[Rfam]
RNA sequence: GAGAUAUGAUGAGUAAUUUUUGGUCCGUGUUUCUGAUUUAACCGUGACUGAUUACCAUUUUAGCACACUCUGAUCUC
Numbered sequence: 001g002a003g004a005u006a007u008g009a010u011g012a013g014u015a016a017u018u019u020u021u022g023g024u025c026c027g028u029g030u031u032u033c034u035g036a037u038u039u040a041a042c043c044g045u046g047a048c049u050g051a052u053u054a055c056c057a058u059u060u061u062a063g064c065a066c067a068c069u070c071u072g073a074u075c076u077c
Stems, first nucleotide, its partner, number of pairs: 001077004
RNA: Small nucleolar RNA SNORD18
Organism: Jatropha curcas